[Rfam]
RNA sequence: UGAAAACUCCCAUCAGAGGGGUAGUUCCCCAUCCAGGGACUACUUUUCCGUACUCAGAAUUC
Number, nucleotide and partner (000 for none) at each position: 001u000002g000003a000004a000005a000006a000007c000008u000009c000010c000011c000012a000013u000014c000015a000016g000017a000018g046019g045020g044021g043022u042023a041024g040025u039026u038027c037028c036029c000030c000031a000032u000033c000034c000035a000036g028037g027038g026039a025040c024041u023042a022043c021044u020045u019046u018047u000048c000049c000050g000051u000052a000053c000054u000055c000056a000057g000058a000059a000060u000061u000062c000
Rfam assigns this 62-nucleotide sequence from Aphanothece sacrum to the family "Plastid-psbN 5UTR RNA". On this family, see Richter et al., Plant Commun 2023: "Retrograde signaling in plants: A critical review focusing on the GUN pathway and beyond". The family has 63 seed sequences and 2,345 matches in Rfam 15.1. The match comes from Rfam's covariance-model search (63 bits). Rfam's curators write: Plastid psbN is a non-coding RNA (ncRNA) recognised in plastids. It was reported as a conserved 11 stem-loop in the prime untranslated region (5UTR) of psbN genes. It has been reported that the motif is retained in a subset of mature transcripts in barley, which can suggests a possible role in transcript alternative 5 prime processing. The family's RNA type in Rfam is cis-regulatory element.